[Rfam]
RNA: Small nucleolar RNA SNORA5
Organism: Poecilia reticulata
RNA sequence: GGCAACCUUGUCAAAUUCAGUGCUUCCUUCCCCCUGGAUGUCACUGGCCAAAGUGGUUGCUAUGGUAACAGUGUAGCCGAUGGGCCCCACAGUGAUUCAGCAUGGCUGUCCGGGGACAGAUAUUUGCUGCACACAGCU
Numbered sequence: 001g002g003c004a005a006c007c008u009u010g011u012c013a014a015a016u017u018c019a020g021u022g023c024u025u026c027c028u029u030c031c032c033c034c035u036g037g038a039u040g041u042c043a044c045u046g047g048c049c050a051a052a053g054u055g056g057u058u059g060c061u062a063u064g065g066u067a068a069c070a071g072u073g074u075a076g077c078c079g080a081u082g083g084g085c086c087c088c089a090c091a092g093u094g095a096u097u098c099a100g101c102a103u104g105g106c107u108g109u110c111c112g113g114g115g116a117c118a119g120a121u122a123u124u125u126g127c128u129g130c131a132c133a134c135a136g137c138u
Base pairs, nucleotide, nucleotide: 002060003059004058005057018046019045020044021043022042023040025038026037027036073130074129075128076127077126085115086114087113088112